[Rfam]
Nucleotides: 157
Stems, first nucleotide, its partner, number of pairs: 004157004009150001011145010021134003025130001027129003036122002041119003045115001048112004054105002059100002062098002068092001073087002
Number, partner (000 for none) and nucleotide at each position: 001000u002000c003000u004157a005156g006155a007154a008000c009150u010000c011145g012144a013143g014142a015141u016140a017139u018138g019137g020136g021134u022133u023132g024000a025130a026000c027129a028128u029127u030000g031000a032000a033000c034000a035000u036122u037121g038000u039000u040000u041119g042118g043117a044000c045115u046000g047000g048112a049111g050110g051109a052000c053000a054105g055104a056000u057000u058000c059100a060099g061000a062098c063097u064000u065000c066000u067000u068092u069000g070000u071000u072000a073087u074086u075000g076000c077000u078000a079000u080000a081000a082000u083000u084000u085000g086074g087073a088000c089000u090000u091000g092068a093000a094000a095000a096000c097063g098062g099060c100059u101000u102000u103000u104055u105054u106000a107000a108000a109051u110050c111049u112048u113000g114000g115045a116000c117043u118042c119041c120000a121037c122036a123000u124000g125000a126000a127029a128028g129027u130025u131000g132023u133022a134021g135000g136020c137019c138018u139017a140016u141015g142014u143013c144012u145011u146000a147000c148000c149000g150009a151000a152000u153000c154007u155006u156005u157004u